[Rfam]
Shown here is a 78-nucleotide RNA sequence from Terrapene triunguis, a member of the family "mir-16 microRNA precursor family". Taxonomically the source falls in Terrapene (Eukaryota, Opisthokonta, Deuterostomia, Sauropsida). On this family, see Jin et al., Mol Cell 2020: "Structural Basis for pri-miRNA Recognition by Drosha". Pairs were carried over by alignment from the consensus structure, which was predicted with PFOLD. The match comes from Rfam's covariance-model search (40 bits).
RNA sequence: GCCCGCCAGCAGCAGCACAGAAGUAAGGAUGGCAAUACCAUACCAUACCAUCCUUACUUCUGUGCUGCUGGAGGCGGC
Numbered sequence: 001g002c003c004c005g006c007c008a009g010c011a012g013c014a015g016c017a018c019a020g021a022a023g024u025a026a027g028g029a030u031g032g033c034a035a036u037a038c039c040a041u042a043c044c045a046u047a048c049c050a051u052c053c054u055u056a057c058u059u060c061u062g063u064g065c066u067g068c069u070g071g072a073g074g075c076g077g078c
Base pairs, nucleotide, nucleotide: 001078002077003076005075006074007073011069012068013067014066015065016064017063018062020059022058023057024056025055026054027053028052029051